[Rfam]
RNA sequence: GUGAGUUUUGUAGAGUUUUAAAGCUAUAAAUCGCCGGUAAAUAGACGUUAAAGACGCGAAAGCUCUACCCAAACUCACCCCGG
Numbered sequence: 001g002u003g004a005g006u007u008u009u010g011u012a013g014a015g016u017u018u019u020a021a022a023g024c025u026a027u028a029a030a031u032c033g034c035c036g037g038u039a040a041a042u043a044g045a046c047g048u049u050a051a052a053g054a055c056g057c058g059a060a061a062g063c064u065c066u067a068c069c070c071a072a073a074c075u076c077a078c079c080c081c082g083g
Base pairs, nucleotide, nucleotide: 001078002077003076004075005074006073007072008071010068011067012066013065014064015063016062017061018060